Rfam assigns this 88-nucleotide sequence from Medicago truncatula to the family "MIR2617 microRNA precursor family". Its family is annotated with RISC complex and miRNA-mediated post-transcriptional gene silencing in the Gene Ontology. NCBI's taxonomy places the organism under Eukaryota, Embryophyta, fabids, Hologalegina, Medicago.
Nucleotides: 088
Stems, first nucleotide, its partner, number of pairs: 004086001006084009016075006
Number, partner (000 for none) and nucleotide at each position: 001000u002000a003000g004086u005000a006084g007083u008082g009081u010080g011079a012078c013077a014076u015000g016075c017074c018073c019072g020071u021070u022000g023000g024000a025000a026000a027000u028000u029000a030000c031000u032000c033000u034000u035000a036000u037000g038000u039000a040000u041000g042000u043000u044000u045000a046000a047000u048000u049000a050000u051000u052000a053000u054000u055000u056000a057000a058000u059000u060000a061000c062000u063000u064000u065000u066000g067000g068000g069000u070021a071020a072019c073018g074017g075016g076014g077013u078012g079011u080010u081009a082008c083007a084006c085000c086004a087000a088000a

The family has 3 seed sequences and 1,174 matches in Rfam 15.1.